[Rfam]
RNA: Purine riboswitch aptamer
RNA sequence: AAAAACCGCAUAAAGUUCACUCAUAUAAUAGCAGGAAUACGGCCUGCAAGUUUCUACCAGUUCACCGUAAAUGAACUGACUAUGAGGUGCAAUGAAUAGGAA
Dot-bracket structure: ...................((((((...(.(((((.......))))).)........(((((((.......)))))))..))))))................